[Rfam]
RNA sequence: UUUUAAUAUUGGUAAACUUCAAGAAAUUGGAGGGCACAAAACUUUAGGGACUAAGCCACAAGGUAAGUCAGCCAGUUACAGUA
Numbered sequence: 001u002u003u004u005a006a007u008a009u010u011g012g013u014a015a016a017c018u019u020c021a022a023g024a025a026a027u028u029g030g031a032g033g034g035c036a037c038a039a040a041a042c043u044u045u046a047g048g049g050a051c052u053a054a055g056c057c058a059c060a061a062g063g064u065a066a067g068u069c070a071g072c073c074a075g076u077u078a079c080a081g082u083a
Base pairs, nucleotide, nucleotide: 012037013036017032018031019030020029021028022027040077041076042075043074047073048072049069050068051067056063057062
Dot-bracket structure: ...........((...((((((....))))))...))..((((...(((((....((....))...)))..))))))......
Annotation:
The record is an 83-nucleotide sequence from a Mycoplasmatota bacterium, which matches "c-di-GMP-I riboswitch aptamer" in Rfam. Its family is annotated with cyclic-di-GMP binding in the Gene Ontology. A search with the family's covariance model found it, with a score of 63 bits.